[Rfam]
RNA sequence: GUGCAUCCAGCAGGAAUUGAACCUACGAAUUUCCCAAUGUUGAGUUGGGCGCUUUAACCAUAAAGCAAUGGAUGC
Numbered sequence: 001g002u003g004c005a006u007c008c009a010g011c012a013g014g015a016a017u018u019g020a021a022c023c024u025a026c027g028a029a030u031u032u033c034c035c036a037a038u039g040u041u042g043a044g045u046u047g048g049g050c051g052c053u054u055u056a057a058c059c060a061u062a063a064a065g066c067a068a069u070g071g072a073u074g075c
Stems, first nucleotide, its partner, number of pairs: 003075006010026001012024003041068001044066003049061001051059001
Shown here is a 75-nucleotide RNA sequence from Camphora micrantha, a member of the family "Plastid-ycf2 5UTR RNA". A reference for the family is Richter et al. (2023), "Retrograde signaling in plants: A critical review focusing on the GUN pathway and beyond", Plant Commun. The family has 204 seed sequences and 3,521 matches in Rfam 15.1. The match comes from Rfam's covariance-model search (72 bits). Lineage of the source: Eukaryota > Euphyllophyta > Spermatophyta > Lauraceae > Camphora. About the family: Plastid ycf2 is a non-coding RNA (ncRNA) recognised in plastids. It was found in the prime untranslated region (5UTR) of ycf2 genes, it presents a tRNA-like motif which suggests it can be involved in mRNA maturation, particularly involved in defining the precise 5' end of the transcript.